The record is a 101-nucleotide RNA from Drosophila virilis, which matches "mir-286 microRNA precursor family" in Rfam. Its family is annotated with RISC complex and miRNA-mediated post-transcriptional gene silencing in the Gene Ontology. Rfam's curators put it in the seed alignment.
RNA sequence: UUAAAAUUAAAUGGCGAUUGUCGGUAUGGUCGCUUUUUCAAACAAUAUACCAUUAUCUAUAUAAAGUGACUAGACCGAACACUCGUGCUAUAAUUUUAAAA
Numbered sequence: 001u002u003a004a005a006a007u008u009a010a011a012u013g014g015c016g017a018u019u020g021u022c023g024g025u026a027u028g029g030u031c032g033c034u035u036u037u038u039c040a041a042a043c044a045a046u047a048u049a050c051c052a053u054u055a056u057c058u059a060u061a062u063a064a065a066g067u068g069a070c071u072a073g074a075c076c077g078a079a080c081a082c083u084c085g086u087g088c089u090a091u092a093a094u095u096u097u098a099a100a101a
Stems, first nucleotide, its partner, number of pairs: 011091006019081003022077003027072005033066004